[Rfam]
Shown here is a 53-nucleotide RNA from Cucurbita maxima, a member of the family "Plastid-ccsA-ndhD-2 3UTR RNA".
NCBI's taxonomy places the organism under Eukaryota, Streptophytina, Tracheophyta, Cucurbitaceae, Cucurbita.
Pairs were carried over by alignment from the consensus structure, which was predicted with LocARNA.
The literature on the family includes a 2023 paper in Plant Commun by Richter et al., "Retrograde signaling in plants: A critical review focusing on the GUN pathway and beyond".
Plastid ccsA-ndhD-2 is a non-coding RNA (ncRNA) recognised in plastids. It was found in the three prime untranslated region (3UTR) of ccsA and ndhD genes, its 3UTR location suggests a role in transcript maturation.
The family has 421 seed sequences and 875 matches in Rfam 15.1.
RNA sequence: UUUGUGAGAACCAUUUGAAUCAAGUAAUAUAGUGAUUCAAAGAGUUCUAGAUG
Numbered sequence: 001u002u003u004g005u006g007a008g009a010a011c012c013a014u015u016u017g018a019a020u021c022a023a024g025u026a027a028u029a030u031a032g033u034g035a036u037u038c039a040a041a042g043a044g045u046u047c048u049a050g051a052u053g
Stems, first nucleotide, its partner, number of pairs: 005050001007048005014041009